[Rfam]
RNA sequence: UAGCGUCAUGUUGGUGCUCAAAAAGUUUUGAAUUUUGGAGCAUUUCAGAUUUCAAAUUUUUGGAUUAGGGAUGCUA
Numbered sequence: 001u002a003g004c005g006u007c008a009u010g011u012u013g014g015u016g017c018u019c020a021a022a023a024a025g026u027u028u029u030g031a032a033u034u035u036u037g038g039a040g041c042a043u044u045u046c047a048g049a050u051u052u053c054a055a056a057u058u059u060u061u062g063g064a065u066u067a068g069g070g071a072u073g074c075u076a
Stems, first nucleotide, its partner, number of pairs: 001076007011068004018063007027056006034049006
RNA: mir-1290 microRNA precursor family
Organism: Gorilla gorilla